[Rfam]
RNA sequence: CAUUUAUCCAGAGUGGAAAAGAGAACUGGCUCGAUGACUCCACGGCAACCUGCUUCUGCAAGGUGCCCCUUCCAGCAAAGCGGAACGCUUUGAGUGAUGAAUG
Numbered sequence: 001c002a003u004u005u006a007u008c009c010a011g012a013g014u015g016g017a018a019a020a021g022a023g024a025a026c027u028g029g030c031u032c033g034a035u036g037a038c039u040c041c042a043c044g045g046c047a048a049c050c051u052g053c054u055u056c057u058g059c060a061a062g063g064u065g066c067c068c069c070u071u072c073c074a075g076c077a078a079a080g081c082g083g084a085a086c087g088c089u090u091u092g093a094g095u096g097a098u099g100a101a102u103g
Stems, first nucleotide, its partner, number of pairs: 001103008013043005021032003026075004044067004049063002051060003076092006
About this RNA: Rfam assigns this 103-nucleotide sequence from Alkalicoccus daliensis to the family "SAM riboswitch aptamer (S box leader)". Rfam 15.1 lists 9,625 matches to the family in 4,158 species. The organism belongs to Alkalicoccus, within Bacteria.